[Rfam]
RNA sequence: AUGCAUGAUGAGGAAAUGUGCAGUAUUCCUGCUUUUGUGGAACACUCUUACCCUUUGCAUGCAAUAUUAUAUUGCUAAGGAGUUAUCAGGGCUGCCAGCUGUUAAGUACAGGCUGAGUGGUAGUAUAUAACUCCCACAAUA
Numbered sequence: 001a002u003g004c005a006u007g008a009u010g011a012g013g014a015a016a017u018g019u020g021c022a023g024u025a026u027u028c029c030u031g032c033u034u035u036u037g038u039g040g041a042a043c044a045c046u047c048u049u050a051c052c053c054u055u056u057g058c059a060u061g062c063a064a065u066a067u068u069a070u071a072u073u074g075c076u077a078a079g080g081a082g083u084u085a086u087c088a089g090g091g092c093u094g095c096c097a098g099c100u101g102u103u104a105a106g107u108a109c110a111g112g113c114u115g116a117g118u119g120g121u122a123g124u125a126u127a128u129a130a131c132u133c134c135c136a137c138a139a140u141a
Base pairs, nucleotide, nucleotide: 003062004061005060006059007058023043024042026040027039029037079134080133081132082131091121092120095117096115097114098113099112100111

Rfam assigns this 141-nucleotide sequence from Xenopus tropicalis to the family "Small nucleolar RNA U109". A search with the family's covariance model found it, with a score of 72 bits. Lineage of the source: Eukaryota > Deuterostomia > Euteleostomi > Sarcopterygii > Silurana. Rfam links the family to the GO terms nucleolus and RNA processing. The literature on the family includes a 2003 paper in EMBO J by Richard et al., "A common sequence motif determines the Cajal body-specific localization of box H/ACA scaRNAs".